[Rfam]
RNA sequence: UGUCUGCCGACAGGCAGGUGGAGGAAGCCGGAGCGCAACGCUGUGAGCCGACCUGUCUGCGUGCACCGCACAGGCAGGCGAACAGAAACGGCAUACAAGGCCCAGUUUCCGGAUAAGUCAGCACAACAUGACGAAGUCCUGGGUUUAAGGAGAUAGGGUAAAUGCUGCGGUUGUGUAGCAAAAGAUCACGUU
Number, nucleotide and partner (000 for none) at each position: 001u016002g015003u014004c013005u012006g011007c000008c000009g000010a000011c006012a005013g004014g003015c002016a001017g000018g000019u000020g000021g000022a000023g000024g000025a000026a000027g192028c000029c190030g189031g000032a000033g000034c000035g000036c184037a000038a000039c000040g179041c178042u177043g176044u175045g174046a172047g171048c170049c169050g168051a000052c000053c000054u000055g000056u000057c000058u000059g000060c000061g000062u000063g000064c000065a000066c000067c000068g000069c000070a000071c000072a000073g000074g000075c000076a000077g000078g000079c000080g000081a000082a000083c000084a000085g000086a000087a000088a000089c167090g166091g165092c164093a163094u162095a000096c000097a000098a000099g000100g159101c158102c157103c000104a000105g154106u153107u152108u151109c150110c149111g139112g138113a137114u136115a000116a000117g132118u131119c130120a129121g000122c000123a000124c000125a000126a000127c000128a000129u120130g119131a118132c117133g000134a000135a000136g114137u113138c112139c111140u000141g000142g000143g000144u000145u000146u000147a000148a000149g110150g109151a108152g107153a106154u105155a000156g000157g102158g101159u100160a000161a000162a094163u093164g092165c091166u090167g089168c050169g049170g048171u047172u046173g000174u045175g044176u043177a042178g041179c040180a000181a000182a000183a000184g036185a000186u000187c000188a000189c030190g029191u000192u027

Shown here is a 192-nucleotide RNA sequence from a Deltaproteobacteria bacterium, a member of the family "Group II catalytic intron D1-D4-3". Pairs were carried over by alignment from the consensus structure. It scores 87 bits against the family's covariance model.